[Rfam]
RNA sequence: ACUCUAAGUACGCCGAAUCCCUGCGCCAGCGGGGAACGGGGGACCCACUUCUCGGGGUGAAUUGCGCUUCGGGCGCAUAGGCGAUCCCCAUCGCCGAACCCGUCAGCUAACCCCGUAGGCGGAUGGGGAGGGGUC
Number, nucleotide and partner (000 for none) at each position: 001a000002c000003u000004c000005u000006a000007a000008g000009u000010a000011c121012g120013c119014c118015g000016a000017a000018u035019c034020c033021c032022u031023g030024c029025g000026c000027c000028a000029g024030c023031g022032g021033g020034g019035a018036a116037c115038g114039g113040g112041g111042g000043a000044c000045c000046c054047a000048c000049u000050u000051c000052u000053c000054g046055g101056g100057g099058u000059g000060a000061a000062u000063u077064g076065c075066g074067c000068u000069u000070c000071g000072g000073g000074c066075g065076c064077a063078u000079a000080g095081g094082c093083g092084a000085u000086c000087c000088c000089c000090a000091u000092c083093g082094c081095c080096g000097a000098a000099c057100c056101c055102g000103u000104c000105a000106g000107c000108u000109a000110a000111c041112c040113c039114c038115g037116u036117a000118g014119g013120c012121g011122g000123a000124u000125g000126g000127g000128g000129a000130g000131g000132g000133g000134u000135c000
RNA: c-di-AMP riboswitch aptamer (ydaO/yuaA leader)
Organism: bacterium HR29